RNA sequence: CCACCGCUUAUGUGGCAUGCACACAUUGGUGAUGUAAUAUAUUAAAAAAAAUAUAUCACCAAUGUGUGCAUGCCACAUAAGCGGUGG
Number, nucleotide and partner (000 for none) at each position: 001c087002c086003a085004c000005c083006g082007c081008u000009u000010a000011u077012g076013u075014g074015g073016c072017a071018u070019g000020c068021a000022c066023a065024c064025a063026u062027u061028g060029g059030u058031g057032a056033u055034g054035u000036a000037a000038u000039a000040u000041a000042u000043u000044a000045a000046a000047a000048a000049a000050a000051a000052u000053a000054u034055a033056u032057c031058a030059c029060c028061a027062a026063u025064g024065u023066g022067u000068g020069c000070a018071u017072g016073c015074c014075a013076c012077a011078u000079a000080a000081g007082c006083g005084g000085u003086g002087g001
The record is an 87-nucleotide RNA from Striga asiatica, which matches "mir-16 microRNA precursor family" in Rfam. The literature on the family includes a 2020 paper in Mol Cell by Jin et al., "Structural Basis for pri-miRNA Recognition by Drosha". Gene Ontology terms of the family: miRNA-mediated post-transcriptional gene silencing and RISC complex. The family has 14 seed sequences and 4,705 matches in Rfam 15.1. The family is grouped with related families in Rfam's "mir-15 clan".